[Rfam]
Rfam assigns this 140-nucleotide RNA sequence from Drosophila kikkawai to the family "Small nucleolar RNA psi28S-1192".
The organism belongs to Sophophora, within Eukaryota.
psi28S-1192 is a member of the H/ACA class of snoRNA. This family is responsible for guiding the modification of uridine 1192 to pseudouridine in Drosophila 28S rRNA.
Pairs were carried over by alignment from the consensus structure, which was predicted with ILM.
It scores 135 bits against the family's covariance model.
RNA sequence: AAAGGGUCCAAUCUAAUUCUGCCUGAUGUUCUAUUCAUGUAGUCUCGCUUUUGGACCAGAACAAAGCCCCAUCUUUUAUUAUCCUUGUGCUUGUGUUUAAUUACCAAAGCAAAGCACACGAGAAACGUAAAAGAACAACU
Numbered sequence: 001a002a003a004g005g006g007u008c009c010a011a012u013c014u015a016a017u018u019c020u021g022c023c024u025g026a027u028g029u030u031c032u033a034u035u036c037a038u039g040u041a042g043u044c045u046c047g048c049u050u051u052u053g054g055a056c057c058a059g060a061a062c063a064a065a066g067c068c069c070c071a072u073c074u075u076u077u078a079u080u081a082u083c084c085u086u087g088u089g090c091u092u093g094u095g096u097u098u099a100a101u102u103a104c105c106a107a108a109g110c111a112a113a114g115c116a117c118a119c120g121a122g123a124a125a126c127g128u129a130a131a132a133g134a135a136c137a138a139c140u
Stems, first nucleotide, its partner, number of pairs: 005057006019042004024037003027033002072134008084122006